The record is an 85-nucleotide RNA sequence, which matches "c-di-GMP-II-GAG riboswitch aptamer" in Rfam.
[Rfam]
RNA sequence: CGGCUAGCGGGAGGCUCUGACACGCGGCCCACACCCUGGCCGCCGGGACCGCGCCGAGCCACUGGCGAGACCGACCCGCGAGGAC
Numbered sequence: 001c002g003g004c005u006a007g008c009g010g011g012a013g014g015c016u017c018u019g020a021c022a023c024g025c026g027g028c029c030c031a032c033a034c035c036c037u038g039g040c041c042g043c044c045g046g047g048a049c050c051g052c053g054c055c056g057a058g059c060c061a062c063u064g065g066c067g068a069g070a071c072c073g074a075c076c077c078g079c080g081a082g083g084a085c
Stems, first nucleotide, its partner, number of pairs: 004082002007079005013060003023053005029047001038072002041067004